Shown here is a 132-nucleotide RNA sequence from Ptilorrhoa leucosticta, a member of the family "Small nucleolar RNA SNORA77". The match comes from Rfam's covariance-model search (46 bits). ACA63 (SNORA77) is a member of the H/ACA class of snoRNAs that guide the sites of modification of uridines to pseudouridines. This snoRNA was identified by computational screening and its expression in mouse experimentally verified by Northern blot and primer extension analysis. A reference for the family is Schattner et al. (2006), "A computational screen for mammalian pseudouridylation guide H/ACA RNAs", RNA. The family's consensus secondary structure was predicted with RNAalifold.
RNA sequence: GCAGACUCACUCUGUGCUGAACUGCAGCCUUCAGUUCAGGUGCUUUUCUGUCUGCGAGAGUAAGAGCUCACAGGAGCGACGAUGGCCUUCUUCCCUGUAGAAGGCUGUUACAGUUGCUGUUGGGACAUCGCU
Numbered sequence: 001g002c003a004g005a006c007u008c009a010c011u012c013u014g015u016g017c018u019g020a021a022c023u024g025c026a027g028c029c030u031u032c033a034g035u036u037c038a039g040g041u042g043c044u045u046u047u048c049u050g051u052c053u054g055c056g057a058g059a060g061u062a063a064g065a066g067c068u069c070a071c072a073g074g075a076g077c078g079a080c081g082a083u084g085g086c087c088u089u090c091u092u093c094c095c096u097g098u099a100g101a102a103g104g105c106u107g108u109u110a111c112a113g114u115u116g117c118u119g120u121u122g123g124g125a126c127a128u129c130g131c132u
Base pairs, nucleotide, nucleotide: 001055002054003053004052005051006050014043015042016041017039018038019037020036022034023033024032067123068122076114077113081109084106085105086104087103088102